[Rfam]
RNA sequence: AUAAUAAACGUGCUACCAUGUAAAGCAACUUCAGACCAUAGUAAUAAGGGAAUAAUAUGAAAUAUUGAAAUAUUAUGGUCUGAAGUUGCUUUACAUGGUAGCACGUUUGCUAC
Numbered sequence: 001a002u003a004a005u006a007a008a009c010g011u012g013c014u015a016c017c018a019u020g021u022a023a024a025g026c027a028a029c030u031u032c033a034g035a036c037c038a039u040a041g042u043a044a045u046a047a048g049g050g051a052a053u054a055a056u057a058u059g060a061a062a063u064a065u066u067g068a069a070a071u072a073u074u075a076u077g078g079u080c081u082g083a084a085g086u087u088g089c090u091u092u093a094c095a096u097g098g099u100a101g102c103a104c105g106u107u108u109g110c111u112a113c
Base pairs, nucleotide, nucleotide: 002112003111005109006108007107008106009105010104011103012102013101014100015099016098017097018096019095020094021093022092023091024090026088027087029085030084031083032082033081034080035079036078037077038076039075040074041073042072043071